The family of this 139-nucleotide sequence from Oryza meyeriana is "Small nucleolar RNA snoR77". A search with the family's covariance model found it, with a score of 102 bits. Rfam classes the family as an H/ACA-box small nucleolar RNA. Rfam links the family to the GO terms nucleolus and RNA processing. NCBI's taxonomy places the organism under Eukaryota, Streptophyta, Streptophytina, Tracheophyta, Oryza meyeriana.
[Rfam]
RNA sequence: AGGCAGCCCCUUUGUCCCGAUUAUAAUGGCAAUGGAGGUGUUGCUUUGCUCGGAGAGUGAUUCUUCUGCUCUUCAGAUUAGCUGAGGGGGAUGGCUUACCUUCCCUCACUGAAGCUUGUCUAGUAGUCUUAAUCUCAUU
Numbered sequence: 001a002g003g004c005a006g007c008c009c010c011u012u013u014g015u016c017c018c019g020a021u022u023a024u025a026a027u028g029g030c031a032a033u034g035g036a037g038g039u040g041u042u043g044c045u046u047u048g049c050u051c052g053g054a055g056a057g058u059g060a061u062u063c064u065u066c067u068g069c070u071c072u073u074c075a076g077a078u079u080a081g082c083u084g085a086g087g088g089g090g091a092u093g094g095c096u097u098a099c100c101u102u103c104c105c106u107c108a109c110u111g112a113a114g115c116u117u118g119u120c121u122a123g124u125a126g127u128c129u130u131a132a133u134c135u136c137a138u139u
Stems, first nucleotide, its partner, number of pairs: 002042004007038002009035002012032005064132002068128001070126001075121004081115003086107006